[Rfam]
RNA sequence: GGCCUUGAAUGUUGGACACACACCCUGGGAGGAUCAUGACCGAAUUGGGAUGUAUUCGUACUGUCUGAUGGGGCC
Numbered sequence: 001g002g003c004c005u006u007g008a009a010u011g012u013u014g015g016a017c018a019c020a021c022a023c024c025c026u027g028g029g030a031g032g033a034u035c036a037u038g039a040c041c042g043a044a045u046u047g048g049g050a051u052g053u054a055u056u057c058g059u060a061c062u063g064u065c066u067g068a069u070g071g072g073g074c075c
Stems, first nucleotide, its partner, number of pairs: 001075007011065001013063003018059002020055001022053002024049002027046002032041001
Dot-bracket structure: (((((((...(.(((..(((.((((.((...(........)...)).))..)).)..)).))).)...)))))))
Shown here is a 75-nucleotide sequence from Nannospalax galili, a member of the family "Small nucleolar RNA ZL2". By type it is a C/D-box small nucleolar RNA. The literature on the family includes a 2013 paper in Genome Biol by Kishore et al., "Insights into snoRNA biogenesis and processing from PAR-CLIP of snoRNA core proteins and small RNA sequencing".